[Rfam]
RNA sequence: AUACGUUAGGGAUAGCAGCGGCAUCCUCCCGAUUUUCUCGGGAGAUACAGCGAAUAGCCCGACCAAGA
Numbered sequence: 001a002u003a004c005g006u007u008a009g010g011g012a013u014a015g016c017a018g019c020g021g022c023a024u025c026c027u028c029c030c031g032a033u034u035u036u037c038u039c040g041g042g043a044g045a046u047a048c049a050g051c052g053a054a055u056a057g058c059c060c061g062a063c064c065a066a067g068a
Stems, first nucleotide, its partner, number of pairs: 009060003013056002018051002023046003028042005